[Rfam]
RNA sequence: CAGGUCCCGGCUCACGUGCGCGCCCGCGCACGACCCGGCGGCC
Numbered sequence: 001c002a003g004g005u006c007c008c009g010g011c012u013c014a015c016g017u018g019c020g021c022g023c024c025c026g027c028g029c030a031c032g033a034c035c036c037g038g039c040g041g042c043c
Stems, first nucleotide, its partner, number of pairs: 003043003007038004015032007